Source information:
Manganese Mn2+ riboswitch aptamer (yybP-ykoY): a 185-nucleotide RNA. Rfam links the family to the GO term manganese ion binding. The base pairs follow the family's consensus structure.
Nucleotides: 185
Base pairs, nucleotide, nucleotide: 036049037048038047051091052090053089054088055087056086057085058084059083060082068081069080070079071078072077093184094183095181096180097179098178
Number, partner (000 for none) and nucleotide at each position: 001000c002000c003000g004000g005000u006000a007000g008000a009000a010000u011000c012000g013000c014000g015000c016000g017000g018000u019000c020000a021000u022000u023000g024000g025000g026000g027000a028000g029000u030000a031000g032000u033000c034000g035000c036049c037048c038047u039000c040000u041000a042000c043000c044000c045000a046000g047038a048037g049036g050000g051091g052090c053089u054088u055087g056086c057085g058084u059083c060082a061000a062000c063000a064000u065000a066000c067000u068081u069080g070079a071078c072077c073000g074000a075000u076000u077072g078071g079070u080069c081068a082060u083059g084058g085057c086056g087055c088054a089053a090052g091051c092000g093184g094183u095181u096180u097179c098178c099000u100000a101000g102000c103000u104000u105000g106000g107000c108000g109000a110000g111000a112000c113000c114000u115000u116000u117000g118000a119000c120000c121000a122000u123000a124000u125000c126000g127000c128000c129000u130000u131000c132000g133000g134000a135000c136000u137000g138000g139000c140000c141000g142000g143000a144000g145000a146000a147000g148000c149000g150000g151000u152000g153000u154000g155000g156000u157000c158000a159000u160000u161000u162000g163000u164000c165000u166000u167000c168000u169000u170000c171000c172000g173000g174000c175000c176000a177000g178098g179097g180096a181095g182000c183094a184093c185000c